[Rfam]
Notes
This 66-nucleotide RNA from Patiria miniata belongs to the Rfam family "Selenocysteine insertion sequence 1". It scores 35 bits against the family's covariance model. Rfam classes the family as a cis-regulatory element. The incorporation of selenocysteine into a protein sequence is directed by an in-frame UGA codon (usually a stop codon) within the coding region of the mRNA. Selenoprotein mRNAs contain a conserved secondary structure in the 3' UTR that is required for the distinction of UGA stop from UGA selenocysteine.

RNA sequence: CUGUCUCAAUGACAGUCUUUCCUUAAACCGAAAUACGGUGGGUUAGACUUGAGGCGAUUAUGACAG
Numbered sequence: 001c002u003g004u005c006u007c008a009a010u011g012a013c014a015g016u017c018u019u020u021c022c023u024u025a026a027a028c029c030g031a032a033a034u035a036c037g038g039u040g041g042g043u044u045a046g047a048c049u050u051g052a053g054g055c056g057a058u059u060a061u062g063a064c065a066g
Base pairs, nucleotide, nucleotide: 001066002065003064004063005062014049015048016047017046018045021042022041023040028038029037030036